Rfam assigns this 156-nucleotide sequence from Microthlaspi erraticum to the family "Small nucleolar RNA snoR138". The family has 7 seed sequences and 308 matches in Rfam 15.1.
RNA sequence: AUAGCCUCCGAAUAACGAGAAGGUGCAGUAUAGGAACACCUUCUGGUUCAGACAGAGGCUUAUAUCAAAAGAACACGAAUCAGUUUUGUCGGUGAAAAAGCUCCACUCUUUCACCAUCAAAACCUUCUUCCUUUCCUUGGAUUGAUUCGAAUAUCU
Numbered sequence: 001a002u003a004g005c006c007u008c009c010g011a012a013u014a015a016c017g018a019g020a021a022g023g024u025g026c027a028g029u030a031u032a033g034g035a036a037c038a039c040c041u042u043c044u045g046g047u048u049c050a051g052a053c054a055g056a057g058g059c060u061u062a063u064a065u066c067a068a069a070a071g072a073a074c075a076c077g078a079a080u081c082a083g084u085u086u087u088g089u090c091g092g093u094g095a096a097a098a099a100g101c102u103c104c105a106c107u108c109u110u111u112c113a114c115c116a117u118c119a120a121a122a123c124c125u126u127c128u129u130c131c132u133u134u135c136c137u138u139g140g141a142u143u144g145a146u147u148c149g150a151a152u153a154u155c156u
Base pairs, nucleotide, nucleotide: 003060004059005058006057007056008055014048015047016046018044019043020042021041023039024038025037076149077148078147079146080145081144084121085120088117089116092114095111096110097109099107100106129141130140131139
Taxonomically the source falls in Microthlaspi (Eukaryota, Streptophytina, eudicotyledons, Brassicales). The literature on the family includes a 2009 paper in Nucleic Acids Res by Chen and Wu, "Mining small RNA sequencing data: a new approach to identify small nucleolar RNAs in Arabidopsis". Rfam links the family to the GO terms RNA processing and nucleolus. The base pairs follow the family's consensus structure, which was predicted with mfold.